[Rfam]
RNA: Small nucleolar RNA SNORD25
RNA sequence: AACAACGAUGAUGAACCCUACAGACCUGUAAUGAUUAUUGCAGAUAUGAUUGUAUAAUCAAAGAACAUCUAAGGGACUGAGUUGUC
Numbered sequence: 001a002a003c004a005a006c007g008a009u010g011a012u013g014a015a016c017c018c019u020a021c022a023g024a025c026c027u028g029u030a031a032u033g034a035u036u037a038u039u040g041c042a043g044a045u046a047u048g049a050u051u052g053u054a055u056a057a058u059c060a061a062a063g064a065a066c067a068u069c070u071a072a073g074g075g076a077c078u079g080a081g082u083u084g085u086c
Base pairs, nucleotide, nucleotide: 002085003084004083005082006081